Overview
Rfam assigns this 48-nucleotide RNA to the family "raiA-hairpin RNA". By type it is a small RNA. The match comes from Rfam's covariance-model search (59 bits).
RNA sequence: CGCCGAGUCAGAGACUCCGGAAGUGGCCGGAGUCUGGUGCAACAGGGA
Numbered sequence: 001c002g003c004c005g006a007g008u009c010a011g012a013g014a015c016u017c018c019g020g021a022a023g024u025g026g027c028c029g030g031a032g033u034c035u036g037g038u039g040c041a042a043c044a045g046g047g048a
Stems, first nucleotide, its partner, number of pairs: 013034008